This 100-nucleotide RNA sequence from Thermanaeromonas sp. C210 belongs to the Rfam family "Purine riboswitch aptamer". Gene Ontology term of the family: purine nucleobase biosynthetic process. Taxonomically the source falls in Thermanaeromonas (Bacteria, Bacillati, Bacillota, Neomoorellales).
[Rfam]
RNA sequence: AAUCAUCUAACGUGAAACCUUCGUAUAACCCCGGCAAUGGGGCCGGGGGUUUCUACCAGGUGACCGGAAUCACCCGACUACGAAGGCGGGGAGAUCGUGG
Numbered sequence: 001a002a003u004c005a006u007c008u009a010a011c012g013u014g015a016a017a018c019c020u021u022c023g024u025a026u027a028a029c030c031c032c033g034g035c036a037a038u039g040g041g042g043c044c045g046g047g048g049g050u051u052u053c054u055a056c057c058a059g060g061u062g063a064c065c066g067g068a069a070u071c072a073c074c075c076g077a078c079u080a081c082g083a084a085g086g087c088g089g090g091g092a093g094a095u096c097g098u099g100g
Stems, first nucleotide, its partner, number of pairs: 018086008029048007057076001059074005